[Rfam]
RNA sequence: CCUGCUGUGUGAUCAGCAGUAGCCUACGGUGGCAUGCAGGAUCGGUAACGAGCCUGUGUGAAGCCCGCCCAACAAUGUCCCCCACGAUCUCGUGGCAUUGAUCCGCCGUGAGGCGGGUCGGUGGAAUCUGCCAGCAGGACGGCGGAGAAGGGG
Numbered sequence: 001c002c003u004g005c006u007g008u009g010u011g012a013u014c015a016g017c018a019g020u021a022g023c024c025u026a027c028g029g030u031g032g033c034a035u036g037c038a039g040g041a042u043c044g045g046u047a048a049c050g051a052g053c054c055u056g057u058g059u060g061a062a063g064c065c066c067g068c069c070c071a072a073c074a075a076u077g078u079c080c081c082c083c084a085c086g087a088u089c090u091c092g093u094g095g096c097a098u099u100g101a102u103c104c105g106c107c108g109u110g111a112g113g114c115g116g117g118u119c120g121g122u123g124g125a126a127u128c129u130g131c132c133a134g135c136a137g138g139a140c141g142g143c144g145g146a147g148a149a150g151g152g153g
Stems, first nucleotide, its partner, number of pairs: 002019006028069005033060008042051003082095005096123004106113002127146006
A member of the RNA family "Group II catalytic intron D1-D4-7" from Roseateles puraquae, 153 nucleotides long. It scores 113 bits against the family's covariance model. The literature on the family includes a 2001 paper in Trends Genet by Bonen and Vogel, "The ins and outs of group II introns". NCBI's taxonomy places the organism under Bacteria, Pseudomonadota, Burkholderiales, Sphaerotilaceae, Roseateles. Gene Ontology term of the family: Group II intron splicing. From the family's description: Group II introns are found in rRNA, tRNA and mRNA of organelles in fungi, plants and protists, and also in mRNA in bacteria.